The family of this 443-nucleotide sequence from Astyanax mexicanus is "Nuclear RNase P".
On this family, see Frank and Pace, Annu Rev Biochem 1998: "Ribonuclease P: unity and diversity in a tRNA processing ribozyme".
RNA sequence: GUGGGAGGAAGCUCACUCCAGAGGUUCACAAACUGAGUGUCCAUCACUCCACCCACAACCUUGGGGAAGGUCUGAGACAAGAGCCAAUCACUGCCCUCGCAGGGUGUCACUGAUCCAGGUGGAGUGAUGACCCAGAGAAGCUGGAGCUGAUGGAGGUUCAGGUAGGAGGAAUAGUGCUGGGUGUGGUGAGUUAGCAGGGAGUAACGACGUCGAGCUUGAGAGAGCGGAAGGAGAAGUCCUGAAAUUUGAGCGAGGAUAUCCGAAGGUUGACACCCCCAGCCUACACAUUGAACUCUGUUUUCCAGCCCUUGAGCCUUGGUACGGUAUUGACGUUUUCCAAUGCGAUCGUCGCGAUAUGAUGAGAUGCGUCCAUGGCAGUGUCGUAGAGCCAUGUAUGUUCAGGCACUGUCUCCAGAACCCAAUUCAGACUACUCUCCUCUCAC
Number, nucleotide and partner (000 for none) at each position: 001g443002u442003g441004g440005g000006a000007g437008g436009a435010a000011g000012c000013u000014c397015a396016c000017u000018c393019c000020a000021g062022a061023g060024g059025u000026u000027c000028a000029c000030a000031a000032a000033c000034u000035g049036a048037g047038u046039g045040u000041c000042c000043a000044u000045c039046a038047c037048u036049c035050c000051a000052c000053c000054c000055a000056c000057a000058a000059c024060c023061u022062u021063g000064g000065g000066g000067a000068a000069g000070g000071u000072c427073u426074g425075a424076g423077a000078c000079a000080a000081g000082a000083g000084c000085c000086a000087a000088u000089c000090a000091c000092u106093g105094c104095c103096c102097u000098c000099g000100c000101a000102g096103g095104g094105u093106g092107u123108c122109a120110c119111u118112g000113a000114u000115c000116c000117a000118g111119g110120u109121g000122g108123a107124g384125u383126g382127a381128u380129g379130a000131c000132c000133c000134a000135g000136a000137g000138a000139a000140g000141c000142u000143g371144g370145a369146g000147c000148u000149g000150a000151u000152g000153g000154a000155g000156g000157u000158u000159c000160a000161g000162g000163u000164a000165g000166g000167a000168g000169g000170a000171a000172u000173a000174g000175u000176g000177c000178u000179g000180g000181g000182u000183g000184u000185g000186g000187u000188g000189a000190g000191u000192u000193a000194g000195c000196a000197g000198g000199g000200a000201g000202u000203a000204a000205c000206g000207a000208c000209g000210u000211c000212g000213a000214g000215c000216u000217u000218g000219a000220g000221a000222g000223a000224g000225c000226g000227g000228a000229a000230g000231g000232a000233g000234a000235a000236g000237u000238c000239c000240u000241g000242a000243a000244a000245u000246u000247u000248g000249a000250g000251c000252g000253a000254g000255g000256a000257u000258a000259u000260c000261c000262g000263a000264a000265g000266g000267u000268u000269g000270a000271c000272a000273c000274c000275c000276c000277c000278a000279g000280c000281c000282u000283a000284c000285a000286c000287a000288u000289u000290g000291a000292a000293c000294u000295c000296u000297g000298u000299u000300u000301u000302c000303c000304a000305g000306c000307c000308c000309u000310u000311g000312a000313g000314c000315c000316u000317u000318g000319g000320u000321a000322c000323g000324g000325u000326a000327u000328u000329g000330a000331c000332g000333u000334u000335u000336u000337c000338c000339a000340a000341u000342g000343c000344g000345a000346u000347c000348g000349u000350c000351g000352c000353g000354a000355u000356a000357u000358g000359a000360u000361g000362a000363g000364a000365u000366g000367c000368g000369u145370c144371c143372a000373u000374g000375g000376c000377a000378g000379u129380g128381u127382c126383g125384u124385a000386g000387a000388g000389c000390c000391a000392u000393g018394u000395a000396u015397g014398u000399u000400c415401a000402g000403g000404c000405a000406c000407u000408g000409u000410c000411u000412c000413c000414a000415g400416a000417a000418c000419c000420c000421a000422a000423u076424u075425c074426a073427g072428a000429c000430u000431a000432c000433u000434c000435u009436c008437c007438u000439c000440u004441c003442a002443c001